RNA: Bacillaceae-1 RNA
Organism: Peribacillus saganii
RNA sequence: GACAAAGGAACGUCGACUAACUUCUGGCACGUCCUGUGCCAAACAUCGACGCCAGCACGUCCUUACA
Numbered sequence: 001g002a003c004a005a006a007g008g009a010a011c012g013u014c015g016a017c018u019a020a021c022u023u024c025u026g027g028c029a030c031g032u033c034c035u036g037u038g039c040c041a042a043a044c045a046u047c048g049a050c051g052c053c054a055g056c057a058c059g060u061c062c063u064u065a066c067a
Base pairs, nucleotide, nucleotide: 011051012050013049014048015047016046026040027039028038029037030036055066057064